MIR396 microRNA precursor family: a 143-nucleotide RNA sequence from Brassica carinata.
The organism belongs to Brassica, within Eukaryota.
RNA sequence: GGUUAUAUUUUUCCACAGCUUUCUUGAACUUUCUUUUUCAUUUCCCUUCUUUUAAAGAUGUAAUAACUAAUUUUUCUUUUAACAUUUAACACUCUAGAAACAAAAAAAAAAAAGCUCAAGAAAGCUGUGGGAAAACAUGACAA
Numbered sequence: 001g002g003u004u005a006u007a008u009u010u011u012u013c014c015a016c017a018g019c020u021u022u023c024u025u026g027a028a029c030u031u032u033c034u035u036u037u038u039c040a041u042u043u044c045c046c047u048u049c050u051u052u053u054a055a056a057g058a059u060g061u062a063a064u065a066a067c068u069a070a071u072u073u074u075u076c077u078u079u080u081a082a083c084a085u086u087u088a089a090c091a092c093u094c095u096a097g098a099a100a101c102a103a104a105a106a107a108a109a110a111a112a113a114g115c116u117c118a119a120g121a122a123a124g125c126u127g128u129g130g131g132a133a134a135a136c137a138u139g140a141c142a143a
Stems, first nucleotide, its partner, number of pairs: 003140004013130003017126006024119004029114004